[Rfam]
RNA sequence: UUCGAUGAUGAUUUGCCUAAUUGUGAGGUGUAGACAACUCCAAGUUCCUGCUUGCUAGGGAGAACCUACUUGGAGUCCUACAUUCAAAUGAGUUCUAUGGGCACUUUCUGAGGU
Number, nucleotide and partner (000 for none) at each position: 001u000002u113003c112004g000005a000006u000007g000008a000009u000010g000011a000012u000013u000014u000015g000016c000017c000018u000019a000020a000021u000022u000023g000024u000025g000026a000027g000028g000029u000030g000031u000032a000033g000034a000035c000036a000037a000038c000039u000040c000041c000042a000043a000044g000045u000046u060047c059048c058049u057050g056051c000052u000053u000054g000055c000056u050057a049058g048059g047060g046061a000062g000063a000064a000065c000066c000067u000068a000069c000070u000071u000072g000073g000074a000075g000076u000077c000078c000079u000080a000081c000082a000083u000084u000085c000086a000087a000088a000089u000090g000091a000092g000093u000094u000095c000096u000097a000098u000099g000100g000101g000102c000103a000104c000105u000106u000107u000108c000109u000110g000111a000112g003113g002114u000
Rfam assigns this 114-nucleotide sequence from Zea mays to the family "Small nucleolar RNA Z278". Rfam links the family to the GO terms RNA processing and nucleolus. Rfam classes the family as a C/D-box small nucleolar RNA. Lineage of the source: Eukaryota > Viridiplantae > Liliopsida > commelinids > Zea. Rfam's curators write: snoZ278 is a C/D box small nucleolar RNA. Its methylation guide targets have not been reported.